[Rfam]
RNA: Small nucleolar RNA SNORA15
Organism: Nycticryphes semicollaris
RNA sequence: GCAUGGAUGAAUUCUGCACUAGCUUUCCUCGGUAGCUCCUGCAGUCAGACACUAUGCCAGAGUGAAUUCCCUUUUCACACUCGGACUGGUGUGCUUUUUAUGUGAGAAUGGGCAUACCCUUGGAAGUGGGAUACAU
Numbered sequence: 001g002c003a004u005g006g007a008u009g010a011a012u013u014c015u016g017c018a019c020u021a022g023c024u025u026u027c028c029u030c031g032g033u034a035g036c037u038c039c040u041g042c043a044g045u046c047a048g049a050c051a052c053u054a055u056g057c058c059a060g061a062g063u064g065a066a067u068u069c070c071c072u073u074u075u076c077a078c079a080c081u082c083g084g085a086c087u088g089g090u091g092u093g094c095u096u097u098u099u100a101u102g103u104g105a106g107a108a109u110g111g112g113c114a115u116a117c118c119c120u121u122g123g124a125a126g127u128g129g130g131a132u133a134c135a136u
Stems, first nucleotide, its partner, number of pairs: 001057006014044005070129002073126004085121001088118009